[Rfam]
c-di-AMP riboswitch aptamer (ydaO/yuaA leader): a 144-nucleotide RNA from Spongiactinospora gelatinilytica. This family represents a conserved RNA structure found upstream of the ydaO and yuaA genes in Bacillus subtilis and related genes in other bacteria. The ydaO/yuaA element is thought to act as a genetic 'off' switch for the ydaO and yuaA genes in its native state. It is believed that the element may be triggered during osmotic shock leading to activation of ydaO, a predicted amino acid transporter gene, and members of the yuaA-yubG operon which code for KtrA and KtrB K+ transporters.

RNA sequence: CAUCGCUGACCGCCGAAUCCCCUACGGGGAACCGGGGACCCACCACGCCCCUGGGGUGAAUCCGAGCCGGCCGUACGGCGGCCCGGUAGGGCUCCUCCGGCCCGAACCCGUCAGCUAACCCGGUAGGCGUCGAUGAGAGGAGCU
Numbered sequence: 001c002a003u004c005g006c007u008g009a010c011c012g013c014c015g016a017a018u019c020c021c022c023u024a025c026g027g028g029g030a031a032c033c034g035g036g037g038a039c040c041c042a043c044c045a046c047g048c049c050c051c052u053g054g055g056g057u058g059a060a061u062c063c064g065a066g067c068c069g070g071c072c073g074u075a076c077g078g079c080g081g082c083c084c085g086g087u088a089g090g091g092c093u094c095c096u097c098c099g100g101c102c103c104g105a106a107c108c109c110g111u112c113a114g115c116u117a118a119c120c121c122g123g124u125a126g127g128c129g130u131c132g133a134u135g136a137g138a139g140g141a142g143c144u
Stems, first nucleotide, its partner, number of pairs: 011129004018030003031124006041053002054109003062086003089103004